[Rfam]
RNA sequence: CUGAAUUCUGAGUAGAAAGAUUAAGAAGAAAAAAAGAUUCAAAAUAAAGACAGAAAUACCCAAUAUCUUGUUCUAGCAAGAUAUUGGGUAUUUCUGUCUU
Numbered sequence: 001c002u003g004a005a006u007u008c009u010g011a012g013u014a015g016a017a018a019g020a021u022u023a024a025g026a027a028g029a030a031a032a033a034a035a036g037a038u039u040c041a042a043a044a045u046a047a048a049g050a051c052a053g054a055a056a057u058a059c060c061c062a063a064u065a066u067c068u069u070g071u072u073c074u075a076g077c078a079a080g081a082u083a084u085u086g087g088g089u090a091u092u093u094c095u096g097u098c099u100u
Stems, first nucleotide, its partner, number of pairs: 047100013061086003065082005
Shown here is a 100-nucleotide RNA sequence from Triticum urartu, a member of the family "Plastid-psbA-1 3UTR RNA". It is annotated as a cis-regulatory element. For this family Rfam cites "Retrograde signaling in plants: A critical review focusing on the GUN pathway and beyond" (Richter et al., Plant Commun, 2023). Clan: Plastid-psbA 3UTR RNA clan. NCBI's taxonomy places the organism under Eukaryota, Viridiplantae, Petrosaviidae, commelinids, Triticum. Plastid psbA-1 is a non-coding RNA (ncRNA) present in plastids. It was identified in inverted repeat sequences in the 3 prime untranslate region (3UTR) of photosystem II quinone-binding protein (psbA).